[Rfam]
RNA sequence: UUUUGAAUACCGGGGUGCUGUAACAAGCUGAGAUGAUACCCGUUGAACCUGAUGCGGUUAAUACCGCCGAAGGGAGUAUUAAAUAGAAUGUC
Numbered sequence: 001u002u003u004u005g006a007a008u009a010c011c012g013g014g015g016u017g018c019u020g021u022a023a024c025a026a027g028c029u030g031a032g033a034u035g036a037u038a039c040c041c042g043u044u045g046a047a048c049c050u051g052a053u054g055c056g057g058u059u060a061a062u063a064c065c066g067c068c069g070a071a072g073g074g075a076g077u078a079u080u081a082a083a084u085a086g087a088a089u090g091u092c
Stems, first nucleotide, its partner, number of pairs: 006080005011042004016036001017028003048073003054067004

The record is a 92-nucleotide RNA from Zophobihabitans entericus, which matches "TPP riboswitch aptamer (THI element)" in Rfam. NCBI's taxonomy places the organism under Bacteria, Pseudomonadota, Orbales, Orbaceae, Zophobihabitans. A search with the family's covariance model found it, with a score of 76 bits. The base pairs follow the family's consensus structure, which is taken from published work. On this family, see Rodionov et al., J Biol Chem 2002: "Comparative genomics of thiamin biosynthesis in procaryotes. New genes and regulatory mechanisms".